[Rfam]
RNA sequence: AAUUGAGCGAAGGUUAAUAAGUAACUUGAGAAAGGUUUGGUCUAAACCUCUCUCAAGUUACUUAUUAACCUUCGCUCAAUUUAUUUACUAA
Numbered sequence: 001a002a003u004u005g006a007g008c009g010a011a012g013g014u015u016a017a018u019a020a021g022u023a024a025c026u027u028g029a030g031a032a033a034g035g036u037u038u039g040g041u042c043u044a045a046a047c048c049u050c051u052c053u054c055a056a057g058u059u060a061c062u063u064a065u066u067a068a069c070c071u072u073c074g075c076u077c078a079a080u081u082u083a084u085u086u087a088c089u090a091a
Stems, first nucleotide, its partner, number of pairs: 005077003009073008018064009028054004033049007

A member of the RNA family "mir-335 microRNA precursor family" from Gigaspora rosea, 91 nucleotides long. The family's consensus secondary structure was predicted with RNAalifold. A search with the family's covariance model found it, with a score of 65 bits. For this family Rfam cites "Patterns of known and novel small RNAs in human cervical cancer" (Lui et al., Cancer Res, 2007). NCBI's taxonomy places the organism under Eukaryota, Fungi, Glomeromycota, Glomeromycotina, Gigaspora.